[Rfam]
The family of this 132-nucleotide sequence from Nesterenkonia alkaliphila is "SAM (S-adenosyl methionine) riboswitch aptamer". Rfam's curators write: SAM-IV is a mRNA element that regulates gene expression via direct sensing of S-adenosylmethionine (SAM or AdoMet). SAM-IV riboswitches share conserved nucleotide positions with the previously described SAM-I riboswitches sequence analysis and molecular recognition experiments suggest that SAM-I and SAM-IV riboswitches share similar ligand binding sites, but have different scaffolds. The match comes from Rfam's covariance-model search (52 bits). Lineage of the source: Bacteria > Actinomycetota > Actinomycetes > Micrococcaceae > Nesterenkonia. The family has 40 seed sequences and 2,360 matches in Rfam 15.1.
RNA sequence: CAUCACGAGCUGCGGCCGUCACGAUCCUCCCUGGGCCGCACACCAACCCCAUGUUCACGGGUGGUUCGGAUCACGAUGCGGCCCGCUUCUGACGCCUUGAGCGUCACUGCCCGGAGCGGGCAAGAGCAGCAG
Numbered sequence: 001c002a003u004c005a006c007g008a009g010c011u012g013c014g015g016c017c018g019u020c021a022c023g024a025u026c027c028u029c030c031c032u033g034g035g036c037c038g039c040a041c042a043c044c045a046a047c048c049c050c051a052u053g054u055u056c057a058c059g060g061g062u063g064g065u066u067c068g069g070a071u072c073a074c075g076a077u078g079c080g081g082c083c084c085g086c087u088u089c090u091g092a093c094g095c096c097u098u099g100a101g102c103g104u105c106a107c108u109g110c111c112c113g114g115a116g117c118g119g120g121c122a123a124g125a126g127c128a129g130c131a132g
Stems, first nucleotide, its partner, number of pairs: 001078004009041001011040006022033002042065003047061003081121009